A member of the RNA family "Small nucleolar RNA SNORD16" from Chiloscyllium punctatum, 100 nucleotides long. It scores 95 bits against the family's covariance model. NCBI's taxonomy places the organism under Eukaryota, Eumetazoa, Selachii, Orectolobiformes, Chiloscyllium. The family is grouped with related families in Rfam's "SNORD16 clan".
RNA sequence: UGCUAUGAUGGUGUAAUUUGCGUCUUAUGCUGUUCACAGCGGCAGUUGCCUUCUGUCAUUAUGCUGGUACAGGGAAAUGACGAGCAAUGAAGUCUGAGCA
Dot-bracket structure: (((.................((((.....((((.....(((((((.......))))).....))....))))......))))...............)))
Numbered sequence: 001u002g003c004u005a006u007g008a009u010g011g012u013g014u015a016a017u018u019u020g021c022g023u024c025u026u027a028u029g030c031u032g033u034u035c036a037c038a039g040c041g042g043c044a045g046u047u048g049c050c051u052u053c054u055g056u057c058a059u060u061a062u063g064c065u066g067g068u069a070c071a072g073g074g075a076a077a078u079g080a081c082g083a084g085c086a087a088u089g090a091a092g093u094c095u096g097a098g099c100a
Stems, first nucleotide, its partner, number of pairs: 001100003021082004030072004039064002041057005